[Rfam]
RNA sequence: UUUGCUAGGUUCGCUGCCUGAGCAAUCAGGCAAGGGCUGGUGAUUAUUUAAUCACCGGCCC
Numbered sequence: 001u002u003u004g005c006u007a008g009g010u011u012c013g014c015u016g017c018c019u020g021a022g023c024a025a026u027c028a029g030g031c032a033a034g035g036g037c038u039g040g041u042g043a044u045u046a047u048u049u050a051a052u053c054a055c056c057g058g059c060c061c
Base pairs, nucleotide, nucleotide: 015032016031017030018029035060036059037058038057039056040055041054042053043052044051

This 61-nucleotide RNA from Pseudoalteromonas rubra belongs to the Rfam family "Pseudomonas sRNA P26". The literature on the family includes a 2006 paper in Nucleic Acids Res by Livny et al., "Identification of 17 Pseudomonas aeruginosa sRNAs and prediction of sRNA-encoding genes in 10 diverse pathogens using the bioinformatic tool sRNAPredict2". The source organism's lineage runs through Bacteria, Pseudomonadota, Gammaproteobacteria, Alteromonadales and Pseudoalteromonas. The base pairs follow the family's consensus structure, which was predicted with RNAalifold. About the family: This small RNA (sRNA) was computationally identified in the genome of the opportunistic pathogen Pseudomonas aeruginosa and its expression verified by northern blot analysis. P26 is conserved across many Gammaproteobacteria species and appears to be consistently located between the DNA directed RNA polymerase (beta subunit) and 50S ribosomal protein L7/L12 genes.